[Rfam]
Nucleotides: 046
Base pairs, nucleotide, nucleotide: 006021007020008019009018010017011016
Number, partner (000 for none) and nucleotide at each position: 001000c002000c003000a004000a005000a006021g007020g008019c009018u010017c011016u012000u013000u014000u015000c016011a017010g018009a019008g020007c021006c022000a023000c024000c025000c026000a027000c028000a029000c030000u031000c032000u033000c034000g035000a036000u037000a038000a039000g040000a041000g042000g043000g044000c045000u046000g

Shown here is a 46-nucleotide RNA sequence from Ornithorhynchus anatinus, a member of the family "Histone 3' UTR stem-loop". Lineage of the source: Eukaryota > Metazoa > Eumetazoa > Ornithorhynchidae > Ornithorhynchus. The base pairs follow the family's consensus structure, which is taken from published work. The family's RNA type in Rfam is cis-regulatory element. On this family, see DeJong et al., RNA 2002: "NMR structure and dynamics of the RNA-binding site for the histone mRNA stem-loop binding protein". The mRNAs of metazoan histone genes lack a poly-A tail. 3' end processing occurs at a site between a highly conserved stem-loop (modelled by this family) and a purine rich region around 20 nts downstream (the histone downstream element, or HDE). The stem-loop is bound by a 31 kDa stem-loop binding protein (SLBP - also termed the histone hairpin binding protein, or HBP). Together with U7 snRNA binding of the HDE, SLBP binding nucleate s the formation of the processing complex. The histone 3' UTR stem-loop is also involved in nucleocytoplasmic transport of the mRNA, and in stability regulation and translation efficiency in the cytoplasm.